[Rfam]
RNA sequence: AUAUUUAUUAGGGGCAAAUUCUUAUUUAGUUAUGGCAGAUCCACACCUGACUGCUCAAAAUCAAUCGUUAUCACAAGAUCGACUACAUCAUUCACAUUAAAAAACAAAGAACAACUGCUGUUUGGAUAAUAUGUUUUUGAGAUUUUAAU
Numbered sequence: 001a002u003a004u005u006u007a008u009u010a011g012g013g014g015c016a017a018a019u020u021c022u023u024a025u026u027u028a029g030u031u032a033u034g035g036c037a038g039a040u041c042c043a044c045a046c047c048u049g050a051c052u053g054c055u056c057a058a059a060a061u062c063a064a065u066c067g068u069u070a071u072c073a074c075a076a077g078a079u080c081g082a083c084u085a086c087a088u089c090a091u092u093c094a095c096a097u098u099a100a101a102a103a104a105c106a107a108a109g110a111a112c113a114a115c116u117g118c119u120g121u122u123u124g125g126a127u128a129a130u131a132u133g134u135u136u137u138u139g140a141g142a143u144u145u146u147a148a149u
Base pairs, nucleotide, nucleotide: 004147007144008142009141012138014136018132019131023128024127025126027114029112030111031110

A member of the RNA family "MIR480 microRNA precursor family" from Populus trichocarpa, 149 nucleotides long. Gene Ontology terms of the family: miRNA-mediated post-transcriptional gene silencing and RISC complex. On this family, see Lu et al., Plant Cell 2005: "Novel and mechanical stress-responsive MicroRNAs in Populus trichocarpa that are absent from Arabidopsis".